[Rfam]
A member of the RNA family "Actino-pnp RNA" from Micropruina sp., 83 nucleotides long. The source organism's lineage runs through Bacteria, Bacillati, Propionibacteriales, Nocardioidaceae and Micropruina. The family's RNA type in Rfam is cis-regulatory element.
RNA sequence: ACCGGUCCUCGGUAGUGGCCUUCGGGUCAGCCACCCACCCGCCAGGGACGGACGGCACCCGCGGGCCUCGAUCGAAGACCGGA
Numbered sequence: 001a002c003c004g005g006u007c008c009u010c011g012g013u014a015g016u017g018g019c020c021u022u023c024g025g026g027u028c029a030g031c032c033a034c035c036c037a038c039c040c041g042c043c044a045g046g047g048a049c050g051g052a053c054g055g056c057a058c059c060c061g062c063g064g065g066c067c068u069c070g071a072u073c074g075a076a077g078a079c080c081g082g083a
Base pairs, nucleotide, nucleotide: 002082003081004080005079006078007077009075010074011073012072013071017067018066019065020064021063023061024060025059026058027057